[Rfam]
RNA sequence: UCAAUGUGAAGCCGAGGUAAUUAAAACUCUGAGUUCUCUCUACGUCAGAGUUUUGUUACCCGGCUCUAUGUGGA
Numbered sequence: 001u002c003a004a005u006g007u008g009a010a011g012c013c014g015a016g017g018u019a020a021u022u023a024a025a026a027c028u029c030u031g032a033g034u035u036c037u038c039u040c041u042a043c044g045u046c047a048g049a050g051u052u053u054u055g056u057u058a059c060c061c062g063g064c065u066c067u068a069u070g071u072g073g074a
Base pairs, nucleotide, nucleotide: 001074002073004071005070006069008067011064012063013062014061016060018058019057020056021055023054024053025052026051027050028049029048030047031046032045033043034042
RNA: mir-4872 microRNA precursor family
Organism: Branchiostoma floridae